[Rfam]
RNA: Plant signal recognition particle RNA
RNA sequence: GCCGGGCUCAGUAACGAGAGCUUGUGACCCAUGUGGGGGCUUUGAAGUGAUGGAACAUAGUUCCAGCCCAUUGGGUUGGGUACAUAGUAACUGUUCACUAGCUUGUCCGUUCCAAGCUAAGAGCUGGGUCGUGAGUCUCCUUCGAAGGUUGGAGACCCACGGUUCCUAGAGUGGAGGGGGAGGGUACCGCGUGAGGCUGGCCACUCUUGGCAGUGGAAGGAUUACAGGCCGGUGCCACUUGGGCCCAAUAAGACCCAAUGGGUUGGAUCCCAAUUGAACCAUCACUUUU
Numbered sequence: 001g002c003c004g005g006g007c008u009c010a011g012u013a014a015c016g017a018g019a020g021c022u023u024g025u026g027a028c029c030c031a032u033g034u035g036g037g038g039g040c041u042u043u044g045a046a047g048u049g050a051u052g053g054a055a056c057a058u059a060g061u062u063c064c065a066g067c068c069c070a071u072u073g074g075g076u077u078g079g080g081u082a083c084a085u086a087g088u089a090a091c092u093g094u095u096c097a098c099u100a101g102c103u104u105g106u107c108c109g110u111u112c113c114a115a116g117c118u119a120a121g122a123g124c125u126g127g128g129u130c131g132u133g134a135g136u137c138u139c140c141u142u143c144g145a146a147g148g149u150u151g152g153a154g155a156c157c158c159a160c161g162g163u164u165c166c167u168a169g170a171g172u173g174g175a176g177g178g179g180g181a182g183g184g185u186a187c188c189g190c191g192u193g194a195g196g197c198u199g200g201c202c203a204c205u206c207u208u209g210g211c212a213g214u215g216g217a218a219g220g221a222u223u224a225c226a227g228g229c230c231g232g233u234g235c236c237a238c239u240u241g242g243g244c245c246c247a248a249u250a251a252g253a254c255c256c257a258a259u260g261g262g263u264u265g266g267a268u269c270c271c272a273a274u275u276g277a278a279c280c281a282u283c284a285c286u287u288u289u
Base pairs, nucleotide, nucleotide: 001040002039003038004023005022006021007020008019009018028037029036030035044288045287046286047285048284049283050282051281052280053279056276057275058273060271062267063266064265065264066263068261069260070259071258072257073256074255075254076253077252078246079245080244081243083241084240087238088237092234093233098232099231101229102228103227104226105225106224107220108219110218111217112216113215114214116211117210118209119208120207121206122205123204126165127164128163129162130161131160132159133158135156136155137154138153139152140151143148166171173201